[Rfam]
RNA sequence: GCCGGUCCUCGGUAGUGGCCCUCGGGCUGUCCGCUGACGGCUGCGUCCCGAGCGCCUCGAUCGAAGACCGGC
Numbered sequence: 001g002c003c004g005g006u007c008c009u010c011g012g013u014a015g016u017g018g019c020c021c022u023c024g025g026g027c028u029g030u031c032c033g034c035u036g037a038c039g040g041c042u043g044c045g046u047c048c049c050g051a052g053c054g055c056c057u058c059g060a061u062c063g064a065a066g067a068c069c070g071g072c
Stems, first nucleotide, its partner, number of pairs: 001072007009064005017056003021052006028045002